[Rfam]
RNA sequence: UUUUCCGAGGAGCGUUGCAACCUCACCCGCUUGAGGCCAGGCUCGGAAAACCACACCCCCUUGCAACCGCGCUCACCCGCA
Numbered sequence: 001u002u003u004u005c006c007g008a009g010g011a012g013c014g015u016u017g018c019a020a021c022c023u024c025a026c027c028c029g030c031u032u033g034a035g036g037c038c039a040g041g042c043u044c045g046g047a048a049a050a051c052c053a054c055a056c057c058c059c060c061u062u063g064c065a066a067c068c069g070c071g072c073u074c075a076c077c078c079g080c081a
Stems, first nucleotide, its partner, number of pairs: 002049007021036005
Overview:
The family of this 81-nucleotide RNA sequence from Rubrivivax gelatinosus is "SAH (S-adenosyl-L-homocysteine) riboswitch aptamer". The family's consensus secondary structure is taken from published work.